[Rfam]
RNA sequence: UUCUGUAAGUAGGGCUGCGCUUUUUUAUAAAAAGCGCAGCCCUUCAUAAAAAAGGGAUGCGCUUUUUUUAAAAAGCGCAGCCCUUCAACUGUAGGGCUGCGCUUUUUCAAAAUGCGCAGCCCU
Numbered sequence: 001u002u003c004u005g006u007a008a009g010u011a012g013g014g015c016u017g018c019g020c021u022u023u024u025u026u027a028u029a030a031a032a033a034g035c036g037c038a039g040c041c042c043u044u045c046a047u048a049a050a051a052a053a054g055g056g057a058u059g060c061g062c063u064u065u066u067u068u069u070a071a072a073a074a075g076c077g078c079a080g081c082c083c084u085u086c087a088a089c090u091g092u093a094g095g096g097c098u099g100c101g102c103u104u105u106u107u108c109a110a111a112a113u114g115c116g117c118a119g120c121c122c123u
Stems, first nucleotide, its partner, number of pairs: 001046001012042006019035003053123003058118005064112001074103007082095002086091001